Overview
The record is a 140-nucleotide RNA from Luteimonas granuli, which matches "Molybdenum/Tungsten riboswitch aptamer (Moco RNA motif)" in Rfam.
RNA sequence: CGUGCCCCGUGGCACUCAAGCCCGGCCGCCUGUGUCCAGCAGGGAUAUGGCGCCCGGGCCGUGGCCUUCACGGGCCACCGGGUCGGACUGGAAACGGGCCGGCUUCCCCUGUAUCGGAAUGGAGCGACAACAUGGCUGCC
Numbered sequence: 001c002g003u004g005c006c007c008c009g010u011g012g013c014a015c016u017c018a019a020g021c022c023c024g025g026c027c028g029c030c031u032g033u034g035u036c037c038a039g040c041a042g043g044g045a046u047a048u049g050g051c052g053c054c055c056g057g058g059c060c061g062u063g064g065c066c067u068u069c070a071c072g073g074g075c076c077a078c079c080g081g082g083u084c085g086g087a088c089u090g091g092a093a094a095c096g097g098g099c100c101g102g103c104u105u106c107c108c109c110u111g112u113a114u115c116g117g118a119a120u121g122g123a124g125c126g127a128c129a130a131c132a133u134g135g136c137u138g139c140c
Base pairs, nucleotide, nucleotide: 003134004133012125013124015122017121020059021058022057023056024055025054027052028051029050030049034046035045036044037043061078062077063076064075065074080105081104082103083102084101085100086099088097089096090095106117107116
The base pairs follow the family's consensus structure, which is taken from published work. It scores 54 bits against the family's covariance model.